[Rfam]
RNA sequence: CCUAAAGGACCUUCUACUAAAGCCACGCACGUCCUGUGCGCAACGUAGAAGUCACCACAUCCGUGUG
Numbered sequence: 001c002c003u004a005a006a007g008g009a010c011c012u013u014c015u016a017c018u019a020a021a022g023c024c025a026c027g028c029a030c031g032u033c034c035u036g037u038g039c040g041c042a043a044c045g046u047a048g049a050a051g052u053c054a055c056c057a058c059a060u061c062c063g064u065g066u067g
Base pairs, nucleotide, nucleotide: 011051012050013049014048015047016046017045026040027039028038029037030036056067057066058065